[Rfam]
RNA: mir-965 microRNA precursor family
Organism: Pararge aegeria
RNA sequence: UAACUGAACGGGAGAAGUUGUAACGCUCUAUGUACUAUAUAAUCAUAAGCGUAUAGCUUUUCCCCUUAGUUG
Number, nucleotide and partner (000 for none) at each position: 001u000002a000003a070004c069005u068006g067007a066008a000009c000010g064011g063012g062013a000014g060015a059016a000017g000018u056019u055020g054021u053022a052023a000024c000025g000026c049027u048028c000029u047030a046031u045032g044033u000034a000035c000036u000037a000038u000039a000040u000041a000042a000043u000044c032045a031046u030047a029048a027049g026050c000051g000052u022053a021054u020055a019056g018057c000058u000059u015060u014061u000062c012063c011064c010065c000066u007067u006068a005069g004070u003071u000072g000